[Rfam]
About this RNA:
Plastid-ycf2 5UTR RNA: a 75-nucleotide sequence from Triticum aestivum. It is annotated as a cis-regulatory element. The family has 204 seed sequences and 3,521 matches in Rfam 15.1. Taxonomically the source falls in Triticum (Eukaryota, Streptophyta, Euphyllophyta, Poales). Plastid ycf2 is a non-coding RNA (ncRNA) recognised in plastids. It was found in the prime untranslated region (5UTR) of ycf2 genes, it presents a tRNA-like motif which suggests it can be involved in mRNA maturation, particularly involved in defining the precise 5' end of the transcript. The literature on the family includes a 2023 paper in Plant Commun by Richter et al., "Retrograde signaling in plants: A critical review focusing on the GUN pathway and beyond".

RNA sequence: GUGCAUCUAGCAGAAAUUGAACCCGCAAAUUUACCAAUUAUGAGUUGGGCACUUUAACCAUUCAGACAUGGAUGU
Numbered sequence: 001g002u003g004c005a006u007c008u009a010g011c012a013g014a015a016a017u018u019g020a021a022c023c024c025g026c027a028a029a030u031u032u033a034c035c036a037a038u039u040a041u042g043a044g045u046u047g048g049g050c051a052c053u054u055u056a057a058c059c060a061u062u063c064a065g066a067c068a069u070g071g072a073u074g075u
Stems, first nucleotide, its partner, number of pairs: 003075006010026002013023001040069003045065005